[Rfam]
A member of the RNA family "Cia-dependent small RNA csRNA1" from Streptococcus oralis, 92 nucleotides long.
The base pairs follow the family's consensus structure.
RNA sequence: AUUAAAUAAAGACCUCCUAACUUUAUUUAAUAGAAAUCCUAAACUUUUUCAUAAUAAUCUCCUAGGGAAGCUACCAUGAGGGUAGCUUUUCU
Numbered sequence: 001a002u003u004a005a006a007u008a009a010a011g012a013c014c015u016c017c018u019a020a021c022u023u024u025a026u027u028u029a030a031u032a033g034a035a036a037u038c039c040u041a042a043a044c045u046u047u048u049u050c051a052u053a054a055u056a057a058u059c060u061c062c063u064a065g066g067g068a069a070g071c072u073a074c075c076a077u078g079a080g081g082g083u084a085g086c087u088u089u090u091c092u
Base pairs, nucleotide, nucleotide: 001031002030003029004028005027006026007025008024009023010022011021067089068088069087070086071085072084073083074082075081